[Rfam]
Shown here is a 202-nucleotide RNA from Buttiauxella agrestis, a member of the family "GlmZ RNA activator of glmS mRNA". From the family's description: This RNA was discovered in E. coli during a large scale screen. The sraJ gene was expressed in early logarithmic phase, but its level decreased with cell growth. Specific cleavage products of this RNA were found. It scores 196 bits against the family's covariance model. The family's RNA type in Rfam is small RNA. Clan: Glm clan.
RNA sequence: GUAGAUGCUCAUUCCACUUCUUAUGUUUGCUUAGGCUUCAUAAACCCAGGAAUGACGCAGAGCCGAUUACGGUGCUUAUCGUCCACCGACAGAUGUCGUCUUUCAGACCUCAUCCAACACCAUGGACACAACGUUGAGUGAAGCACCACUUAGUUGUCAUACAGACCUGUUUUAACACCUGCCUAUUGGCAGGUGUUUUUUU
Dot-bracket structure: ((...(((((((..(.(.(.......(.......)......)......)).)))).)))..)).......(((((((...(((((......((((...............))))........))))).............)))))))........(((.....))).......((((((((((....)))))))))).....